[Rfam]
RNA: c-di-AMP riboswitch aptamer (ydaO/yuaA leader)
RNA sequence: GUGGUGACUCAGCCGAAUCCAUGCAGACAUGAGGCAUGGAGCCGGGGACCCAAUGGGCCCGUCCCGCACCGAGCGUUUCGCUGCGGGAAACGGCCGGGGGUGAAUCGGCGCGUGAGCGCCGUAGGGCGAACUUCCCCGCCCGAAUCCGUCAGCUAACCCGGUAGGCGUUCGUGGAAGAGUUG
Numbered sequence: 001g002u003g004g005u006g007a008c009u010c011a012g013c014c015g016a017a018u019c020c021a022u023g024c025a026g027a028c029a030u031g032a033g034g035c036a037u038g039g040a041g042c043c044g045g046g047g048a049c050c051c052a053a054u055g056g057g058c059c060c061g062u063c064c065c066g067c068a069c070c071g072a073g074c075g076u077u078u079c080g081c082u083g084c085g086g087g088a089a090a091c092g093g094c095c096g097g098g099g100g101u102g103a104a105u106c107g108g109c110g111c112g113u114g115a116g117c118g119c120c121g122u123a124g125g126g127c128g129a130a131c132u133u134c135c136c137c138g139c140c141c142g143a144a145u146c147c148g149u150c151a152g153c154u155a156a157c158c159c160g161g162u163a164g165g166c167g168u169u170c171g172u173g174g175a176a177g178a179g180u181u182g
Stems, first nucleotide, its partner, number of pairs: 012166003018040007041162006051097001098147003106121004124141004